[Rfam]
RNA sequence: AUGCAGACGUCCGGGUUUCGUGACAUGCGAGCCGUUAUCAUUGUGCUGGUUCGUUGUCGACGAAACCUGCACGAUCUGUAA
Numbered sequence: 001a002u003g004c005a006g007a008c009g010u011c012c013g014g015g016u017u018u019c020g021u022g023a024c025a026u027g028c029g030a031g032c033c034g035u036u037a038u039c040a041u042u043g044u045g046c047u048g049g050u051u052c053g054u055u056g057u058c059g060a061c062g063a064a065a066c067c068u069g070c071a072c073g074a075u076c077u078g079u080a081a
Base pairs, nucleotide, nucleotide: 002080003079004078005077006076012069013068014067015066016065017064018063019062020061029052030051031050032049033048
The family of this 81-nucleotide RNA sequence from Microctonus aethiopoides is "mir-981 microRNA precursor family". Its family is annotated with RISC complex and miRNA-mediated post-transcriptional gene silencing in the Gene Ontology. For this family Rfam cites "Direct sequencing and expression analysis of a large number of miRNAs in Aedes aegypti and a multi-species survey of novel mosquito miRNAs" (Li et al., BMC Genomics, 2009). The match comes from Rfam's covariance-model search (70 bits). The family has 17 seed sequences and 180 matches in Rfam 15.1.